Rfam assigns this 108-nucleotide RNA from Romboutsia sp. CE17 to the family "SAM riboswitch aptamer (S box leader)".
The base pairs follow the family's consensus structure, which is taken from published work.
The SAM riboswitch is found upstream of a number of genes which code for proteins involved in methionine or cysteine biosynthesis in Gram-positive bacteria. The SAM riboswitch acts at the level of transcription termination control.

RNA sequence: ACCUUAUCAAGAGAGGCUGAGGGAUAGGCCCUAUGACGCCCAGCAACCGCCCUAACGGGAAAAGGUGCUAAUUCCUACAAGAUUUUUUAAAAUCUUGAAAGAUGAGGU
Numbered sequence: 001a002c003c004u005u006a007u008c009a010a011g012a013g014a015g016g017c018u019g020a021g022g023g024a025u026a027g028g029c030c031c032u033a034u035g036a037c038g039c040c041c042a043g044c045a046a047c048c049g050c051c052c053u054a055a056c057g058g059g060a061a062a063a064g065g066u067g068c069u070a071a072u073u074c075c076u077a078c079a080a081g082a083u084u085u086u087u088u089a090a091a092a093u094c095u096u097g098a099a100a101g102a103u104g105a106g107g108u
Base pairs, nucleotide, nucleotide: 001108002107003106004105005104006103007102008101013041015040016039017038021031022030023029025077026076027075028074042069043068044067045066047065048064051059052058073100078097079096080095081094082093083092